[Rfam]
RNA sequence: CACUGAUGGGCCUGAACUUUUUGCUCUAACCUGUGUUGGACUAGGUGAGCAAACUUUCAGGUGUGUUAGUGC
Numbered sequence: 001c002a003c004u005g006a007u008g009g010g011c012c013u014g015a016a017c018u019u020u021u022u023g024c025u026c027u028a029a030c031c032u033g034u035g036u037u038g039g040a041c042u043a044g045g046u047g048a049g050c051a052a053a054c055u056u057u058c059a060g061g062u063g064u065g066u067u068a069g070u071g072c
Stems, first nucleotide, its partner, number of pairs: 002070006010062006016055001018053003024049003030045003